[Rfam]
RNA sequence: GCCGAGUUGGGUUACUCCAGCUUGUGACCCAAGUGGGGGCACCAGGUUGAUGGAACAUGGUUCUGGCUUUCGUUAGGCUGGGCUGUUAGAUGCAAUAUUCUGGCCUGCCCACUCCAAGUUGAGAGUUGGACCGUGGGGCUUGGGCGAAGGCCCUUGUCUCUCGGCCCCUAAACUGGAGGGCAAAGCGUGAGGCUGGUUUCACAGAGCAGCGAAUACCUCUGGCUCCUGACAGUGGAGGGAUAACAGGCUGAUGCACUCUCAGCCCAUUGUGCCUAGUGGGCCUGGCCUCUUGAACCAUCAUCUUU
Numbered sequence: 001g002c003c004g005a006g007u008u009g010g011g012u013u014a015c016u017c018c019a020g021c022u023u024g025u026g027a028c029c030c031a032a033g034u035g036g037g038g039g040c041a042c043c044a045g046g047u048u049g050a051u052g053g054a055a056c057a058u059g060g061u062u063c064u065g066g067c068u069u070u071c072g073u074u075a076g077g078c079u080g081g082g083c084u085g086u087u088a089g090a091u092g093c094a095a096u097a098u099u100c101u102g103g104c105c106u107g108c109c110c111a112c113u114c115c116a117a118g119u120u121g122a123g124a125g126u127u128g129g130a131c132c133g134u135g136g137g138g139c140u141u142g143g144g145c146g147a148a149g150g151c152c153c154u155u156g157u158c159u160c161u162c163g164g165c166c167c168c169u170a171a172a173c174u175g176g177a178g179g180g181c182a183a184a185g186c187g188u189g190a191g192g193c194u195g196g197u198u199u200c201a202c203a204g205a206g207c208a209g210c211g212a213a214u215a216c217c218u219c220u221g222g223c224u225c226c227u228g229a230c231a232g233u234g235g236a237g238g239g240a241u242a243a244c245a246g247g248c249u250g251a252u253g254c255a256c257u258c259u260c261a262g263c264c265c266a267u268u269g270u271g272c273c274u275a276g277u278g279g280g281c282c283u284g285g286c287c288u289c290u291u292g293a294a295c296c297a298u299c300a301u302c303u304u305u
Stems, first nucleotide, its partner, number of pairs: 001040003004023008028037003044304003048300006056292002059289002062285002065282002069279002073275001076273003080265003085259001088257001091255002095252001101250007109239002112237005118230004123225004128167002131164003135161002137158003142153004174221006186211003193204003